The record is a 92-nucleotide RNA sequence from Clostridium magnum, which matches "Glycine riboswitch aptamer" in Rfam. NCBI's taxonomy places the organism under Bacteria, Bacillota, Clostridia, Clostridium, Clostridium magnum.
RNA sequence: GGACGAAACUCUGAAGAGCCUGUUUUAGAAACAGCACCAAAGGUGAAAGAUAUAUUAUCGAAACUCUCGGGUAAAUGAACAGAGGAUGUGUG
Numbered sequence: 001g002g003a004c005g006a007a008a009c010u011c012u013g014a015a016g017a018g019c020c021u022g023u024u025u026u027a028g029a030a031a032c033a034g035c036a037c038c039a040a041a042g043g044u045g046a047a048a049g050a051u052a053u054a055u056u057a058u059c060g061a062a063a064c065u066c067u068c069g070g071g072u073a074a075a076u077g078a079a080c081a082g083a084g085g086a087u088g089u090g091u092g
Stems, first nucleotide, its partner, number of pairs: 006087001009084005020034004036072003040067001043066001045064001049059002